Record summary: A member of the RNA family "Molybdenum/Tungsten riboswitch aptamer (Moco RNA motif)" from Pasteurella multocida, 150 nucleotides long. For this family Rfam cites "Identification of 22 candidate structured RNAs in bacteria using the CMfinder comparative genomics pipeline" (Weinberg et al., Nucleic Acids Res, 2007). The sequence is in the family's curated seed alignment. Its family is annotated with tungstate binding, molybdenum ion binding and regulation of gene expression in the Gene Ontology. Taxonomically the source falls in Pasteurella multocida subsp. multocida (Bacteria, Pseudomonadati, Pseudomonadota, Pasteurellaceae).

RNA sequence: AUUAUCGCAUAACUCCGAGCUUAUUUAACCUACGUUUCUACAAUAGAAAUAAGGUGGUAAUGCCAAUAGCAUAAAACUUGUGCUAUUCAGGGAUACGCUGGAAACGGUUUAUCCUCUCGUAUUUUAGAAAGGUGUGACAUGCAAACAAUU
Number, nucleotide and partner (000 for none) at each position: 001a000002u000003u144004a000005u000006c141007g000008c000009a000010u000011a000012a135013c134014u000015c132016c131017g000018a000019g063020c062021u000022u060023a000024u000025u057026u056027a000028a055029c054030c053031u000032a000033c000034g050035u049036u048037u047038c046039u045040a000041c000042a000043a000044u000045a039046g038047a037048a036049a035050u034051a000052a000053g030054g029055u028056g026057g025058u000059a000060a022061u000062g020063c019064c000065a087066a086067u085068a084069g083070c082071a081072u080073a079074a000075a000076a000077c000078u000079u073080g072081u071082g070083c069084u068085a067086u066087u065088c000089a000090g115091g114092g113093a112094u111095a110096c000097g108098c107099u106100g105101g000102a000103a000104a000105c100106g099107g098108u097109u000110u095111a094112u093113c092114c091115u090116c127117u126118c000119g000120u000121a000122u000123u000124u000125u000126a117127g116128a000129a000130a000131g016132g015133u000134g013135u012136g000137a000138c000139a000140u000141g006142c000143a000144a003145a000146c000147a000148a000149u000150u000